Rfam assigns this 126-nucleotide RNA sequence from Streptomyces sp. Mg1 to the family "Streptomyces RNA 3920". The base pairs follow the family's consensus structure. About the family: Identified by deep sequencing of transcriptome at the end of exponential growth phase. Sequencing size consistent with northern blot size. Streptomyces specific. Rfam classes the family as a small RNA. It scores 120 bits against the family's covariance model. NCBI's taxonomy places the organism under Bacteria, Actinomycetota, Actinomycetes, Kitasatosporales, Streptomyces.
[Rfam]
RNA sequence: GAUAGGCCACUGUCGUUACCGUGAUUGGACUCUGACAGAGGGUCAACUAGCCUUGUGCCCGUGGUUCUUCGCGCGCGGAACCCGGGGCGGUCCGAGCCACUAGGGGGGAGGCUCGGAUCGCCCGUC
Numbered sequence: 001g002a003u004a005g006g007c008c009a010c011u012g013u014c015g016u017u018a019c020c021g022u023g024a025u026u027g028g029a030c031u032c033u034g035a036c037a038g039a040g041g042g043u044c045a046a047c048u049a050g051c052c053u054u055g056u057g058c059c060c061g062u063g064g065u066u067c068u069u070c071g072c073g074c075g076c077g078g079a080a081c082c083c084g085g086g087g088c089g090g091u092c093c094g095a096g097c098c099a100c101u102a103g104g105g106g107g108g109a110g111g112c113u114c115g116g117a118u119c120g121c122c123c124g125u126c
Base pairs, nucleotide, nucleotide: 001014002013003012004011005010015051016050017049018048021032023030033045034044035043036042058075060073061072062071063070064069076084077083086122087121088120089119090118091117092116093115094114095113096112097111098110100107